A member of the RNA family "CRISPR RNA direct repeat element" from Richelia sinica, 37 nucleotides long. A search with the family's covariance model found it, with a score of 39 bits. Gene Ontology term of the family: defense response. NCBI's taxonomy places the organism under Bacteria, Cyanobacteriota, Nostocales, Richelia, Richelia sinica.

RNA sequence: GUUUCAACCCGCCCCACUUCGGGAGGGGUGUUGAAAC
Numbered sequence: 001g002u003u004u005c006a007a008c009c010c011g012c013c014c015c016a017c018u019u020c021g022g023g024a025g026g027g028g029u030g031u032u033g034a035a036a037c
Stems, first nucleotide, its partner, number of pairs: 005033004009027002013023003